[Rfam]
Description
A member of the RNA family "Xanthomonadaceae sRNA sX13" from Luteimonas sp. JM171, 112 nucleotides long. The source organism's lineage runs through Bacteria, Pseudomonadota, Lysobacterales, Lysobacteraceae and Luteimonas. For this family Rfam cites "Genome-wide transcriptome analysis of the plant pathogen Xanthomonas identifies sRNAs with putative virulence functions" (Schmidtke et al., Nucleic Acids Res, 2011). The family's RNA type in Rfam is small RNA.
RNA sequence: AACGUCUGUCGCUGAUCUCUCCCUUCCCCUGGAGUGAUCUGGAACGUAAGACUUCUCCCCGAGUCCCGUUCCACCGAGCCCCGCAGGCCCCCCCUGCCUGCGGGGCUUUUUA
Numbered sequence: 001a002a003c004g005u006c007u008g009u010c011g012c013u014g015a016u017c018u019c020u021c022c023c024u025u026c027c028c029c030u031g032g033a034g035u036g037a038u039c040u041g042g043a044a045c046g047u048a049a050g051a052c053u054u055c056u057c058c059c060c061g062a063g064u065c066c067c068g069u070u071c072c073a074c075c076g077a078g079c080c081c082c083g084c085a086g087g088c089c090c091c092c093c094c095u096g097c098c099u100g101c102g103g104g105g106c107u108u109u110u111u112a
Base pairs, nucleotide, nucleotide: 004012006011014039015038016037017036019034020033021032022031041072042071043070044069045068046067050065051064052063053062077107078106079105080104081103082102083101084100085099086098087097088096